RNA sequence: AUGCCUUAAACUAAUGAGUAAGGAAAAUAAUGAGCCUGGGUGACGCCAGGCUCCACAGCAACACAUUGUCUGUGAAGAAUUUUUGAUGGGGGAAAGGUUGCCCUAGGUGUGUCCCACCUACUUUAGUGGGAUGCCCUUGUUGUGUGAUCUACCCC
Dot-bracket structure: ...(((((..........)))))........((((((((......))))))))(((((...........))))).............((((...(((((((..((.(.(((.(((((........))))).))).).))....))))))).))))

The family of this 155-nucleotide RNA sequence from Acanthaster planci is "U12 minor spliceosomal RNA".
The literature on the family includes a 1997 paper in Trends Biochem Sci by Tarn and Steitz, "Pre-mRNA splicing: the discovery of a new spliceosome doubles the challenge".
Pairs were carried over by alignment from the consensus structure.
It is annotated as a spliceosomal small nuclear RNA.
Its Rfam clan is "U2 clan".